[Rfam]
RNA sequence: AAGAGUUAUAAGCGUAUUCCCGAUAGGAUUCACCUUGAUAGUGAAGAUGCCUUGUAACCAAAUUAAUAGGGGGAAUCAUUAAAAUG
Numbered sequence: 001a002a003g004a005g006u007u008a009u010a011a012g013c014g015u016a017u018u019c020c021c022g023a024u025a026g027g028a029u030u031c032a033c034c035u036u037g038a039u040a041g042u043g044a045a046g047a048u049g050c051c052u053u054g055u056a057a058c059c060a061a062a063u064u065a066a067u068a069g070g071g072g073g074a075a076u077c078a079u080u081a082a083a084a085u086g
Base pairs, nucleotide, nucleotide: 017075018074019073020072021071025052026051027050029045030044031043032042033041058070059069
Dot-bracket structure: ................(((((...(((.(((((.......)))))....))).....((.........)))))))...........